[Rfam]
RNA: Small nucleolar RNA SNORA84
Organism: Oncorhynchus kisutch
RNA sequence: GCCUUGUGGUUCCUAGAGACAGCUGGACUGUGCUGAUCUGUGGGUUUUGAUUGACUGGCAAAUAUUAAUCUCUGCGAUUUAUGCAUGGGAGCUACCACUCCAAGUAUCUCCCAUAGCCCGGUUGUUGAGACAUUC
Numbered sequence: 001g002c003c004u005u006g007u008g009g010u011u012c013c014u015a016g017a018g019a020c021a022g023c024u025g026g027a028c029u030g031u032g033c034u035g036a037u038c039u040g041u042g043g044g045u046u047u048u049g050a051u052u053g054a055c056u057g058g059c060a061a062a063u064a065u066u067a068a069u070c071u072c073u074g075c076g077a078u079u080u081a082u083g084c085a086u087g088g089g090a091g092c093u094a095c096c097a098c099u100c101c102a103a104g105u106a107u108c109u110c111c112c113a114u115a116g117c118c119c120g121g122u123u124g125u126u127g128a129g130a131c132a133u134u135c
Base pairs, nucleotide, nucleotide: 001059002058003057007049008048012044013043014042015041017039020035021034022033023032072127074125075124076123077122078121079120083117084116085114086113087112088111090109091108093106094105095104